[Rfam]
RNA: MIR7504 microRNA precursor family
RNA sequence: AGUAGGAGGAAGACAAAUCAGAUUUUUCCUCCUAAUUUUCAAUUUUUUUCCUCCUGAAAAUUUCAAAUACAACUGAAAAACCUAAAAAUUUAGAGGAAAAUCUAAUUUGUCAUCCUCCUAUU
Numbered sequence: 001a002g003u004a005g006g007a008g009g010a011a012g013a014c015a016a017a018u019c020a021g022a023u024u025u026u027u028c029c030u031c032c033u034a035a036u037u038u039u040c041a042a043u044u045u046u047u048u049u050c051c052u053c054c055u056g057a058a059a060a061u062u063u064c065a066a067a068u069a070c071a072a073c074u075g076a077a078a079a080a081c082c083u084a085a086a087a088a089u090u091u092a093g094a095g096g097a098a099a100a101u102c103u104a105a106u107u108u109g110u111c112a113u114c115c116u117c118c119u120a121u122u
Stems, first nucleotide, its partner, number of pairs: 001122010012111007020103003024100004029095003034090006041083001045079004
Dot-bracket structure: ((((((((((.(((((((.(((.((((.(((..((((((.(...((((...........................))))...).))))))..))).))))))).))))))).))))))))))